This 94-nucleotide RNA from Anolis carolinensis belongs to the Rfam family "Small nucleolar RNA U83B". About the family: U83B belongs to the C/D family of snoRNAs. U83B like U83A has no documented RNA target and they share the same host gene with the C/D box snoRNA U43 (RPL3). The family's RNA type in Rfam is C/D-box small nucleolar RNA. The sequence is in the family's curated seed alignment. NCBI's taxonomy places the organism under Eukaryota, Metazoa, Tetrapoda, Lepidosauria, Anolis.
RNA sequence: GCUGUUCAGUGAUGAGAUCAUGGAAUAUGCACUGGGCACAGUGCCUGAUAAUAAAUGAGGAGUCGUUCCAUGCUGCCUUCCUUCUGAGACCAGC
Numbered sequence: 001g002c003u004g005u006u007c008a009g010u011g012a013u014g015a016g017a018u019c020a021u022g023g024a025a026u027a028u029g030c031a032c033u034g035g036g037c038a039c040a041g042u043g044c045c046u047g048a049u050a051a052u053a054a055a056u057g058a059g060g061a062g063u064c065g066u067u068c069c070a071u072g073c074u075g076c077c078u079u080c081c082u083u084c085u086g087a088g089a090c091c092a093g094c
Stems, first nucleotide, its partner, number of pairs: 001094004